RNA sequence: CGAUCCUCGUCGGGGCGUCCCGUCCGCGCAGUGCGGCCGGGGCUGAGAGGCCAAGGCCGACCCGUCGAACCUGAUCCGGCUCAUACCGGCGGAGGGAACGAGAUGACAUCAUCU
Numbered sequence: 001c002g003a004u005c006c007u008c009g010u011c012g013g014g015g016c017g018u019c020c021c022g023u024c025c026g027c028g029c030a031g032u033g034c035g036g037c038c039g040g041g042g043c044u045g046a047g048a049g050g051c052c053a054a055g056g057c058c059g060a061c062c063c064g065u066c067g068a069a070c071c072u073g074a075u076c077c078g079g080c081u082c083a084u085a086c087c088g089g090c091g092g093a094g095g096g097a098a099c100g101a102g103a104u105g106a107c108a109u110c111a112u113c114u
Stems, first nucleotide, its partner, number of pairs: 006102005011064004017043005050057002070095003076089004
RNA: TPP riboswitch aptamer (THI element)
Organism: Rhizobiales bacterium GAS113